[Rfam]
RNA sequence: UGUGCAGUGCGAGGAUUUGUACGAACUCAUUUCUUGCCUUUUACCAGAAGUGACCGCGAGUCCCGCACAACACUGCACUUACUCAAUCUUUGGAACAAAAACGUCGAGGAUUCGA
Numbered sequence: 001u002g003u004g005c006a007g008u009g010c011g012a013g014g015a016u017u018u019g020u021a022c023g024a025a026c027u028c029a030u031u032u033c034u035u036g037c038c039u040u041u042u043a044c045c046a047g048a049a050g051u052g053a054c055c056g057c058g059a060g061u062c063c064c065g066c067a068c069a070a071c072a073c074u075g076c077a078c079u080u081a082c083u084c085a086a087u088c089u090u091u092g093g094a095a096c097a098a099a100a101a102c103g104u105c106g107a108g109g110a111u112u113c114g115a
Stems, first nucleotide, its partner, number of pairs: 003077004008067004013063007027053008096114001098112002
Source information
The family of this 115-nucleotide sequence from Parastagonospora nodorum is "U5 spliceosomal RNA". The family has 180 seed sequences and 28,527 matches in Rfam 15.1. The family's RNA type in Rfam is spliceosomal small nuclear RNA.